[Rfam]
RNA: Small nucleolar RNA SNORA24
RNA sequence: CUCCCUGUGUCUCUGGGACCUGCUGGCUGUGGCAGUCUCCUUCCUAGCCAGGGAAGAGCAUUUUCUUGUUUGUUGGCAAAGCUGUCACCAUGUCAUUGGUAUCAGAUUCUGACUUGGACAAGUAACAUUC
Numbered sequence: 001c002u003c004c005c006u007g008u009g010u011c012u013c014u015g016g017g018a019c020c021u022g023c024u025g026g027c028u029g030u031g032g033c034a035g036u037c038u039c040c041u042u043c044c045u046a047g048c049c050a051g052g053g054a055a056g057a058g059c060a061u062u063u064u065c066u067u068g069u070u071u072g073u074u075g076g077c078a079a080a081g082c083u084g085u086c087a088c089c090a091u092g093u094c095a096u097u098g099g100u101a102u103c104a105g106a107u108u109c110u111g112a113c114u115u116g117g118a119c120a121a122g123u124a125a126c127a128u129u130c
Base pairs, nucleotide, nucleotide: 002054003053004052005051006050007049016040017039018038020035021034022033023032024031067127068126069125070124073121074120075119077116078115079114082105083104084103087100088099089098090097